RNA sequence: GGGUGAAGUGGCAUGUGCCUGUAGUCUCAGCUACUCAGGCAGCUGAGGUGGGAGGAUCAUUUGAGCCCAGGAGUUCUGGGCUGUGGUGAGCUAUGCCAAUCAGGUGUCCACACUAAGUUUGGCAUAAAUAUGGUGACCUCCUGGGAACAGAGGACCAUCAGGUUGCCUAGGGAGGGGUGAACUGGCCCAGGUCAGAAAUGGAGCAGGUCAAAACUCCCAUGUUGACCAGUAGUGGGAUCACACCUGUGAAUAGCCACUAUAAUCCAGCCUGGGCAACAUAACAAGACCCCAUCUCUU
Numbered sequence: 001g002g003g004u005g006a007a008g009u010g011g012c013a014u015g016u017g018c019c020u021g022u023a024g025u026c027u028c029a030g031c032u033a034c035u036c037a038g039g040c041a042g043c044u045g046a047g048g049u050g051g052g053a054g055g056a057u058c059a060u061u062u063g064a065g066c067c068c069a070g071g072a073g074u075u076c077u078g079g080g081c082u083g084u085g086g087u088g089a090g091c092u093a094u095g096c097c098a099a100u101c102a103g104g105u106g107u108c109c110a111c112a113c114u115a116a117g118u119u120u121g122g123c124a125u126a127a128a129u130a131u132g133g134u135g136a137c138c139u140c141c142u143g144g145g146a147a148c149a150g151a152g153g154a155c156c157a158u159c160a161g162g163u164u165g166c167c168u169a170g171g172g173a174g175g176g177g178u179g180a181a182c183u184g185g186c187c188c189a190g191g192u193c194a195g196a197a198a199u200g201g202a203g204c205a206g207g208u209c210a211a212a213a214c215u216c217c218c219a220u221g222u223u224g225a226c227c228a229g230u231a232g233u234g235g236g237a238u239c240a241c242a243c244c245u246g247u248g249a250a251u252a253g254c255c256a257c258u259a260u261a262a263u264c265c266a267g268c269c270u271g272g273g274c275a276a277c278a279u280a281a282c283a284a285g286a287c288c289c290c291a292u293c294u295c296u297u
Stems, first nucleotide, its partner, number of pairs: 001020005007014001025039003045295008057284001060281002065274007076267005082261007090254005096248001101246007108236002111234005117227001119225007127164003131160005138153002141150003166172002174217005183210005192201003
Rfam assigns this 297-nucleotide sequence from Gorilla gorilla to the family "Metazoan signal recognition particle RNA". It scores 226 bits against the family's covariance model. NCBI's taxonomy places the organism under Eukaryota, Mammalia, Theria, Haplorrhini, Gorilla gorilla. The family's consensus secondary structure is taken from published work. From the family's description: The signal recognition particle (SRP) is a universally conserved ribonucleoprotein.